[Rfam]
RNA: THF (Tetrahydrofolate) riboswitch aptamer
Nucleotides: 095
Stems, first nucleotide, its partner, number of pairs: 001095002004092001006091001011083009020073003026056002029054005035049002040089003044085001060070004
Number, partner (000 for none) and nucleotide at each position: 001095u002094g003000c004092a005000u006091g007000a008000g009000u010000a011083g012082a013081a014080a015079u016078g017077a018076c019075g020073c021072g022071u023000c024000a025000a026056g027055u028000a029054c030053c031052g032051g033050u034000u035049g036048g037000a038000u039000g040089g041088g042087a043000g044085g045000u046000u047000g048036c049035c050033g051032c052031c053030g054029g055027g056026c057000g058000a059000a060070g061069g062068a063067g064000u065000c066000u067063c068062u069061c070060c071022g072021c073020g074000g075019u076018g077017u078016c079015a080014u081013u082012u083011c084000g085044c086000a087042u088041c089040c090000g091006c092004u093000a094002u095001a